6S / SsrS RNA: a 183-nucleotide RNA. By type it is a non-coding RNA gene. The literature on the family includes a 2017 paper in Molecular Cell by Chen et al., "6S RNA Mimics B-Form DNA to Regulate Escherichia coli RNA Polymerase". Rfam 15.1 lists 5,006 matches to the family in 4,638 species. Pairs were carried over by alignment from the consensus structure, which is taken from published work. About the family: E. coli 6S RNA was the first non coding RNA to be sequenced, but its function was unknown until recently.

[Rfam]
RNA sequence: UUGUCCCUGCCGUGUCCGUGACUAGGCCAUACAUUCUCUGAACCUAUGCUUUCGGCAUAUGGUUGCGGGAGUGUAGAGCUGGAGUGAUCGUCUCUCGUAGACGAACCCGACGCUCUGCGGAACGCGACCACCUCUUACCUCAGGGUUCGAGAUGCCGGCCUUGACGGCACAGGCGGGGCAUUU
Numbered sequence: 001u002u003g004u005c006c007c008u009g010c011c012g013u014g015u016c017c018g019u020g021a022c023u024a025g026g027c028c029a030u031a032c033a034u035u036c037u038c039u040g041a042a043c044c045u046a047u048g049c050u051u052u053c054g055g056c057a058u059a060u061g062g063u064u065g066c067g068g069g070a071g072u073g074u075a076g077a078g079c080u081g082g083a084g085u086g087a088u089c090g091u092c093u094c095u096c097g098u099a100g101a102c103g104a105a106c107c108c109g110a111c112g113c114u115c116u117g118c119g120g121a122a123c124g125c126g127a128c129c130a131c132c133u134c135u136u137a138c139c140u141c142a143g144g145g146u147u148c149g150a151g152a153u154g155c156c157g158g159c160c161u162u163g164a165c166g167g168c169a170c171a172g173g174c175g176g177g178g179c180a181u182u183u
Stems, first nucleotide, its partner, number of pairs: 005178007012170004017166003035152003039149006061129003065125003072119008084106002088104005